[Rfam]
RNA: Lysine riboswitch aptamer
RNA sequence: GCAGACAGAAGAGGAGCGUUACCCAGGUAUCUAGGAUUGCGGGGCCCCACCCCAAGGCAGUCUGGAGAGGGGGAGUAGCGCCGAGAUAUGUUGUGACAGGGGGCAUGGCAUAUCGGCUUGGAAGGUUGAAUCCUUCUGGCUGUCACCUUUCCAGACGAUAUAGGUAGUGGAAAGGUGGGGAGCUUCUGGUUGU
Numbered sequence: 001g002c003a004g005a006c007a008g009a010a011g012a013g014g015a016g017c018g019u020u021a022c023c024c025a026g027g028u029a030u031c032u033a034g035g036a037u038u039g040c041g042g043g044g045c046c047c048c049a050c051c052c053c054a055a056g057g058c059a060g061u062c063u064g065g066a067g068a069g070g071g072g073g074a075g076u077a078g079c080g081c082c083g084a085g086a087u088a089u090g091u092u093g094u095g096a097c098a099g100g101g102g103g104c105a106u107g108g109c110a111u112a113u114c115g116g117c118u119u120g121g122a123a124g125g126u127u128g129a130a131u132c133c134u135u136c137u138g139g140c141u142g143u144c145a146c147c148u149u150u151c152c153a154g155a156c157g158a159u160a161u162a163g164g165u166a167g168u169g170g171a172a173a174g175g176u177g178g179g180g181a182g183c184u185u186c187u188g189g190u191u192g193u
Stems, first nucleotide, its partner, number of pairs: 006188006016081007024073001030066005036061003085114011115141004120137006143178011